[Rfam]
RNA sequence: AACUUUUACGAGGUAUCAGCACUUUUCUUUCAUUAGUGGGGAAGGAAGGAUGAAAAAUACAAAACAGCAGUAGACUUUUAAAGUUUAAAUAGACAGGUCUGAGUGCCUGAACGCGCUCUUCCAUUUUAGUUUAAACCUCCAAAGAAGUACUCUGAUCCAUAUUUACUGCUGAUCAGCAAGGGUAAGUUGAAAGU
Dot-bracket structure: ..((..(((...)))..)).........(((.((.(.((..(((....((((...((..............((((((.................))))))(.(((......))).)..)).))))....)))...)).).)).))).........(.((..(((.(((.....))).).))......)).)...